[Rfam]
RNA sequence: AUCGAGACUAGAGUCACAUCCUGGCACUUUUCAUUGUCUUGGUGUGCUAUAGUCCUCGGAGAAAGACCACUGAUCUAUAUUCACUGCCAGUGGCGUCCCAUGCCUCCAGUCAGUCACCGGAUCAGUAACAUUG
Numbered sequence: 001a002u003c004g005a006g007a008c009u010a011g012a013g014u015c016a017c018a019u020c021c022u023g024g025c026a027c028u029u030u031u032c033a034u035u036g037u038c039u040u041g042g043u044g045u046g047c048u049a050u051a052g053u054c055c056u057c058g059g060a061g062a063a064a065g066a067c068c069a070c071u072g073a074u075c076u077a078u079a080u081u082c083a084c085u086g087c088c089a090g091u092g093g094c095g096u097c098c099c100a101u102g103c104c105u106c107c108a109g110u111c112a113g114u115c116a117c118c119g120g121a122u123c124a125g126u127a128a129c130a131u132u133g
Stems, first nucleotide, its partner, number of pairs: 002059005007053003012048002015046006023038004070125007083114004087109001090106001092104003